[Rfam]
RNA sequence: CUUGACCGAGCCGAGCCGCAGCGGCCGGUCGGCAGGCCGGUCGGCGCCGUACGUGGCGAGCACCGCCUGCGCCUC
Number, nucleotide and partner (000 for none) at each position: 001c000002u000003u000004g000005a000006c000007c000008g000009a000010g000011c000012c000013g000014a000015g025016c024017c023018g000019c000020a000021g000022c000023g017024g016025c015026c000027g000028g000029u000030c000031g000032g070033c069034a000035g000036g000037c000038c065039g064040g000041u000042c000043g000044g000045c058046g000047c056048c055049g054050u000051a000052c000053g000054u049055g048056g047057c000058g045059a000060g000061c000062a000063c000064c039065g038066c000067c000068u000069g033070c032071g000072c000073c000074u000075c000
The family of this 75-nucleotide RNA sequence from Actinacidiphila paucisporea is "ASpks TB sRNA". The organism belongs to Actinacidiphila, within Bacteria. A search with the family's covariance model found it, with a score of 70 bits.